[Rfam]
RNA sequence: UCCCCCGAGACACGAAUUCAUCGGGCAGGAGUGGGGGACCCACAGGUUCCACGCCGGGAUCGUCGCUCGACGAUCGCGGCUCGGGGUGAAGUCACGCGAGUGACGGAGCACUUUCCAGCUCCAACCCGACAGCUCACCUCACAGGCGUGGGAAAGGAAUC
Numbered sequence: 001u002c003c004c005c006c007g008a009g010a011c012a013c014g015a016a017u018u019c020a021u022c023g024g025g026c027a028g029g030a031g032u033g034g035g036g037g038a039c040c041c042a043c044a045g046g047u048u049c050c051a052c053g054c055c056g057g058g059a060u061c062g063u064c065g066c067u068c069g070a071c072g073a074u075c076g077c078g079g080c081u082c083g084g085g086g087u088g089a090a091g092u093c094a095c096g097c098g099a100g101u102g103a104c105g106g107a108g109c110a111c112u113u114u115c116c117a118g119c120u121c122c123a124a125c126c127c128g129a130c131a132g133c134u135c136a137c138c139u140c141a142c143a144g145g146c147g148u149g150g151g152a153a154a155g156g157a158a159u160c
Stems, first nucleotide, its partner, number of pairs: 001030003031142006041083001084127003092103004106121004
RNA: c-di-AMP riboswitch aptamer (ydaO/yuaA leader)